[Rfam]
RNA sequence: CCCUCCGAAGUUUCCCUCAGGAUAGCUGGAGCACGCAACGUUUCGGAACCUAUUCUUAUCUGGUAAAGCGAAUGAUUAGAGGCCUUAGGUUCGAAAUGAUCUUAACCUAUUCUCAAACUAUAAAUGGGUACGUACCAUAGCAUUCUUGCAUGAUGCUGUUGCAACGUUGACGCCGGGUCGCCCCCCUGUCAGGGUGUGCCAUCCACAAGCGGCGUAGAAGAUAUCUGUGUGCUUAGUGGGCCAAGUUUUGGUAAGCAGAACUGGUGCUGUGGGAUGAACCAAACGUAAUGUUACGGCGCCUAAAUAAACGACGCAUCAUAGAUACCAUGAAAGGUGUUGAUUGCUACAGACAGCAGGACGGUGGACAUGGAAGUUGUCAUCCGCUAAGGAGUGUGUAACAACUCACCUGCCGAAGCAAUUAGCCCUUAAAAUGGAUGGCGCUUAAGUCGUUUGCCUAUACAUUACCGCUGGCGUACAAGUGGGGCAGCGCGCACGCACGUCUGCCCUUUGAGACGCCAGCGAGUAGGAGGGUCUGGUGGUGUGCGUUGAAGUGCCUGGCGUAAGCCGACAUGGAGCCGCCACUAGCACAGAU
Number, nucleotide and partner (000 for none) at each position: 001c531002c530003c529004u528005c527006c526007g000008a000009a000010g000011u024012u000013u022014c021015c020016c000017u000018c000019a000020g015021g014022a013023u000024a011025g000026c000027u000028g233029g232030a000031g230032c229033a228034c000035g000036c000037a000038a000039c000040g000041u000042u000043u000044c000045g000046g000047a000048a000049c000050c000051u000052a000053u000054u000055c132056u000057u130058a129059u128060c127061u126062g000063g000064u000065a000066a121067a119068g118069c000070g000071a000072a000073u115074g114075a113076u000077u000078a110079g000080a108081g107082g106083c000084c000085u105086u104087a103088g102089g101090u000091u000092c098093g000094a000095a000096a000097u000098g092099a000100u000101c089102u088103u087104a086105a085106c082107c081108u080109a000110u078111u000112c000113u075114c074115a073116a000117a000118c068119u067120a000121u066122a000123a000124a000125u000126g061127g060128g059129u058130a057131c000132g055133u000134a000135c000136c214137a000138u212139a000140g210141c209142a000143u207144u000145c000146u000147u000148g000149c000150a000151u000152g000153a000154u000155g000156c000157u000158g000159u000160u000161g000162c000163a000164a000165c000166g000167u000168u000169g000170a000171c000172g000173c000174c000175g000176g000177g000178u000179c000180g000181c000182c000183c000184c000185c000186c000187u000188g000189u000190c000191a000192g000193g000194g000195u000196g000197u000198g000199c000200c000201a000202u000203c000204c000205a000206c000207a143208a000209g141210c140211g000212g138213c000214g136215u000216a000217g000218a000219a000220g000221a000222u000223a000224u000225c000226u000227g000228u033229g032230u031231g000232c029233u028234u000235a000236g000237u000238g000239g000240g265241c264242c263243a000244a262245g261246u260247u259248u258249u257250g256251g000252u000253a000254a000255g000256c250257a249258g248259a247260a246261c245262u244263g242264g241265u240266g000267c000268u000269g000270u281271g280272g279273g000274a000275u000276g000277a000278a000279c272280c271281a270282a000283a000284c000285g465286u464287a463288a462289u461290g000291u459292u000293a000294c000295g455296g454297c453298g000299c000300c000301u000302a000303a000304a452305u000306a451307a000308a000309c000310g448311a447312c446313g000314c000315a000316u000317c000318a000319u000320a000321g000322a000323u000324a000325c000326c000327a000328u000329g000330a000331a000332a426333g425334g424335u000336g423337u422338u421339g420340a419341u418342u417343g416344c415345u414346a000347c000348a000349g000350a000351c000352a000353g410354c409355a408356g407357g406358a000359c383360g382361g381362u000363g000364g378365a377366c376367a000368u000369g000370g000371a000372a000373g000374u000375u000376g366377u365378c364379a000380u000381c361382c360383g359384c388385u000386a000387a000388g384389g404390a000391g000392u000393g402394u401395g000396u000397a000398a000399c000400a000401a394402c393403u000404c389405a000406c357407c356408u355409g354410c353411c000412g000413a000414a345415g344416c343417a342418a341419u340420u339421a338422g337423c336424c334425c333426u332427u000428a000429a000430a000431a000432u000433g000434g000435a000436u000437g000438g000439c000440g000441c000442u000443u000444a000445a000446g312447u311448c310449g000450u000451u306452u304453g297454c296455c295456u000457a000458u000459a291460c000461a289462u288463u287464a286465c285466c521467g520468c519469u518470g517471g516472c515473g514474u513475a000476c000477a000478a000479g000480u000481g000482g000483g000484g000485c000486a000487g000488c000489g000490c000491g000492c000493a000494c000495g000496c000497a000498c000499g000500u000501c000502u000503g000504c000505c000506c000507u000508u000509u000510g000511a000512g000513a474514c473515g472516c471517c470518a469519g468520c467521g466522a000523g000524u000525a000526g006527g005528a004529g003530g002531g001532u587533c000534u584535g583536g582537u581538g580539g579540u578541g577542u000543g576544c575545g000546u000547u000548g000549a000550a000551g571552u570553g000554c000555c000556u000557g566558g565559c564560g000561u000562a000563a000564g559565c558566c557567g000568a000569c000570a552571u551572g000573g000574a000575g544576c543577c541578g540579c539580c538581a537582c536583u535584a534585g000586c000587a532588c000589a000590g000591a000592u000
This 592-nucleotide part of an RNA from Aedes aegypti belongs to the Rfam family "Eukaryotic large subunit ribosomal RNA". The family has 88 seed sequences and 107,465 matches in Rfam 15.1.